RNA sequence: UGAAUGCAUUAACUGUAAGUCGCUCUGGAUAAGAGCGUCUACUAAAUGACAAAAA
Number, nucleotide and partner (000 for none) at each position: 001u000002g000003a000004a000005u000006g000007c000008a000009u000010u000011a000012a000013c000014u044015g042016u041017a040018a000019g000020u000021c037022g036023c035024u034025c033026u032027g000028g000029a000030u000031a000032a026033g025034a024035g023036c022037g021038u000039c000040u017041a016042c015043u000044a014045a000046a000047u000048g000049a000050c000051a000052a000053a000054a000055a000
RNA: UnaL2 LINE 3' element
Organism: Salmo trutta